RNA: mir-2774 microRNA precursor family
RNA sequence: ACAAUAUUCGGACCGUCGGUCUACCGAGCAAUAUCACGCACCCGGUGGAAGAUCUUCCUCGGAAACCU
Dot-bracket structure: ....(....(((..(((..(((((((.(............).))))))).)))..))).....)....